[Rfam]
A member of the RNA family "CyVA-1 RNA" from Calothrix sp. PCC 6303, 77 nucleotides long.
Rfam describes the family as follows. Cyanobacteria, Acidobacteria (1 example), Verrucomicrobia (1 example).
It is one of the family's seed sequences.
RNA sequence: CUACUGGCGGGGAGUUUUACCGUUGUGUCCCCUUGCUACAUCUAGAAGGAGAGCGAUGUCACAGAUGCAGACAGUAU
Number, nucleotide and partner (000 for none) at each position: 001c000002u076003a075004c074005u073006g072007g000008c000009g032010g031011g030012g029013a000014g000015u000016u000017u000018u000019a000020c000021c000022g000023u000024u000025g000026u000027g000028u000029c012030c011031c010032c009033u000034u000035g000036c000037u069038a000039c067040a066041u065042c064043u063044a000045g000046a000047a000048g000049g000050a000051g000052a000053g000054c000055g000056a000057u000058g000059u000060c000061a000062c000063a043064g042065a041066u040067g039068c000069a037070g000071a000072c006073a005074g004075u003076a002077u000